[Rfam]
RNA sequence: GGUCGCAAUGACGACAUUUAAAAUUCAAGCUCAACAGACUGGAUUACAAUCUCUCUGUAUGAGAAGAUUGUGUGUCGACAACCACUUCUUUUACUGAGCGAUC
Numbered sequence: 001g002g003u004c005g006c007a008a009u010g011a012c013g014a015c016a017u018u019u020a021a022a023a024u025u026c027a028a029g030c031u032c033a034a035c036a037g038a039c040u041g042g043a044u045u046a047c048a049a050u051c052u053c054u055c056u057g058u059a060u061g062a063g064a065a066g067a068u069u070g071u072g073u074g075u076c077g078a079c080a081a082c083c084a085c086u087u088c089u090u091u092u093a094c095u096g097a098g099c100g101a102u103c
Base pairs, nucleotide, nucleotide: 001103002102003101004100005099006098
Dot-bracket structure: ((((((...........................................................................................))))))